[Rfam]
RNA sequence: AGGCAACCCCCUUCUGUUGUACAAAGUGAGAAGGGUGGUGUUAAUCUGCUCAUAGAUCAAUCAGCUUUUGCUCUUCAGACUUGCUGAGUAUUUCCUUGAAGCUGGUCUAGUAAGCUUUAGUACAUU
Numbered sequence: 001a002g003g004c005a006a007c008c009c010c011c012u013u014c015u016g017u018u019g020u021a022c023a024a025a026g027u028g029a030g031a032a033g034g035g036u037g038g039u040g041u042u043a044a045u046c047u048g049c050u051c052a053u054a055g056a057u058c059a060a061u062c063a064g065c066u067u068u069u070g071c072u073c074u075u076c077a078g079a080c081u082u083g084c085u086g087a088g089u090a091u092u093u094c095c096u097u098g099a100a101g102c103u104g105g106u107c108u109a110g111u112a113a114g115c116u117u118u119a120g121u122a123c124a125u126u
Stems, first nucleotide, its partner, number of pairs: 002042004007038002009035007065120002070115003077108005083102003088094001

The family of this 126-nucleotide RNA sequence from Sesamum indicum is "Small nucleolar RNA snoR77". A search with the family's covariance model found it, with a score of 109 bits. Taxonomically the source falls in Sesamum (Eukaryota, Streptophyta, Euphyllophyta, Mesangiospermae).